[Rfam]
The record is a 124-nucleotide RNA from Daucus carota, which matches "MIR390 microRNA precursor family" in Rfam. Rfam links the family to the GO terms miRNA-mediated post-transcriptional gene silencing and RISC complex. Taxonomically the source falls in Daucus carota (Eukaryota, Gunneridae, Apiales, Apiineae). A reference for the family is Gustafson et al. (2005), "ASRP: the Arabidopsis Small RNA Project Database", Nucleic Acids Res.

RNA sequence: UGGGAGGAUCCGUAAAGCUCAGGAGGGAUAGCGCCAUGUCAUAUAUCAAACUCCAGAUUUCACAAAGUUGUAUGAUGAUCAUCAACUGUGGCGCUAUCUAUCCUGAGUUUCAUUGCUUCUUCCU
Numbered sequence: 001u002g003g004g005a006g007g008a009u010c011c012g013u014a015a016a017g018c019u020c021a022g023g024a025g026g027g028a029u030a031g032c033g034c035c036a037u038g039u040c041a042u043a044u045a046u047c048a049a050a051c052u053c054c055a056g057a058u059u060u061c062a063c064a065a066a067g068u069u070g071u072a073u074g075a076u077g078a079u080c081a082u083c084a085a086c087u088g089u090g091g092c093g094c095u096a097u098c099u100a101u102c103c104u105g106a107g108u109u110u111c112a113u114u115g116c117u118u119c120u121u122c123c124u
Base pairs, nucleotide, nucleotide: 010115016109017108018107019106020105021104022103023102024101026099027098028097029096030095031094032093033092034091035090036089037088